[Rfam]
RNA sequence: CUCCCCGAAAACUAUUUAGGUAGUGCCUCGAGCAAGACACUGAUGGGGGUAAAGCACUGUUAUGGCUAGGGGGUUAUUGCAACUUACCAACCCAUGGCAAACUAAGAAUACCAUCAAGUGGUUCCUCGGGAGACAGACAGCGGGUGCUAACGUCCGUUGUCAAGAGGGAAACAACCCAGACCGCCAGCUAAGGUCCCAAAUGAUAGAUUAAGUGGUAAACGAAGUGGGAAGGCCCAGACAGCCAGGAUGUUGGCUUAGAAGCAGCCAUCAUUUAAAGAAAGCGUAAUAGCUCACUGGUCGAGUCGUCCUGCGCGGAAGAUGUAACGGGGCUCAAAUCUAUAACCGAAGCUGCGGAUGCCAGUUUACUGGCAUGGUAGGGGAGCGUUCUGUAGGCCGAUGAAGGUGCAUUGUAAAGUGUGCUGGAGGUAUCAGAAGUGCGAAU
Numbered sequence: 001c002u003c004c005c006c007g008a009a010a011a012c013u014a015u016u017u018a019g020g021u022a023g024u025g026c027c028u029c030g031a032g033c034a035a036g037a038c039a040c041u042g043a044u045g046g047g048g049g050u051a052a053a054g055c056a057c058u059g060u061u062a063u064g065g066c067u068a069g070g071g072g073g074u075u076a077u078u079g080c081a082a083c084u085u086a087c088c089a090a091c092c093c094a095u096g097g098c099a100a101a102c103u104a105a106g107a108a109u110a111c112c113a114u115c116a117a118g119u120g121g122u123u124c125c126u127c128g129g130g131a132g133a134c135a136g137a138c139a140g141c142g143g144g145u146g147c148u149a150a151c152g153u154c155c156g157u158u159g160u161c162a163a164g165a166g167g168g169a170a171a172c173a174a175c176c177c178a179g180a181c182c183g184c185c186a187g188c189u190a191a192g193g194u195c196c197c198a199a200a201u202g203a204u205a206g207a208u209u210a211a212g213u214g215g216u217a218a219a220c221g222a223a224g225u226g227g228g229a230a231g232g233c234c235c236a237g238a239c240a241g242c243c244a245g246g247a248u249g250u251u252g253g254c255u256u257a258g259a260a261g262c263a264g265c266c267a268u269c270a271u272u273u274a275a276a277g278a279a280a281g282c283g284u285a286a287u288a289g290c291u292c293a294c295u296g297g298u299c300g301a302g303u304c305g306u307c308c309u310g311c312g313c314g315g316a317a318g319a320u321g322u323a324a325c326g327g328g329g330c331u332c333a334a335a336u337c338u339a340u341a342a343c344c345g346a347a348g349c350u351g352c353g354g355a356u357g358c359c360a361g362u363u364u365a366c367u368g369g370c371a372u373g374g375u376a377g378g379g380g381a382g383c384g385u386u387c388u389g390u391a392g393g394c395c396g397a398u399g400a401a402g403g404u405g406c407a408u409u410g411u412a413a414a415g416u417g418u419g420c421u422g423g424a425g426g427u428a429u430c431a432g433a434a435g436u437g438c439g440a441a442u
Stems, first nucleotide, its partner, number of pairs: 001382006011024005026132001027130006037123001038120003041116006053103002058099003062095004069088002071085005136161010166177003181354004186350003192344003201341001203340006220314002224311006231304003241298005247271003252266003272276001277292001281290002355372007383437001385434005393427003402421008
Bacterial large subunit ribosomal RNA: a 442-nucleotide part of an RNA from Morococcus cerebrosus. Taxonomically the source falls in Morococcus (Bacteria, Pseudomonadati, Neisseriales, Neisseriaceae).